[Rfam]
Rfam assigns this 124-nucleotide RNA sequence from Haemaphysalis longicornis to the family "U4atac minor spliceosomal RNA". Rfam links the family to the GO terms spliceosomal tri-snRNP complex assembly, U4atac snRNP and pre-mRNA 5'-splice site binding. It is annotated as a spliceosomal small nuclear RNA.
RNA sequence: ACCGUCUUUAUCAUGGGGAGCUUGGUCGCGCCGAGGAUCGUAAAGUGAGGCCGGCCUUGCUGACACCGUGAAACAACACGCACGCGCCGUGUAGCGCUGCUACGCUGGUGCAAUUUUUGGACCC
Numbered sequence: 001a002c003c004g005u006c007u008u009u010a011u012c013a014u015g016g017g018g019a020g021c022u023u024g025g026u027c028g029c030g031c032c033g034a035g036g037a038u039c040g041u042a043a044a045g046u047g048a049g050g051c052c053g054g055c056c057u058u059g060c061u062g063a064c065a066c067c068g069u070g071a072a073a074c075a076a077c078a079c080g081c082a083c084g085c086g087c088c089g090u091g092u093a094g095c096g097c098u099g100c101u102a103c104g105c106u107g108g109u110g111c112a113a114u115u116u117u118u119g120g121a122c123c124c
Stems, first nucleotide, its partner, number of pairs: 005019005020060002025055004030051003039045001084111006090104006
Dot-bracket structure: ....(((((.....)))))((...((((.(((......(.....)...)))))))...)).......................((((((((((((...)))))).)))))).............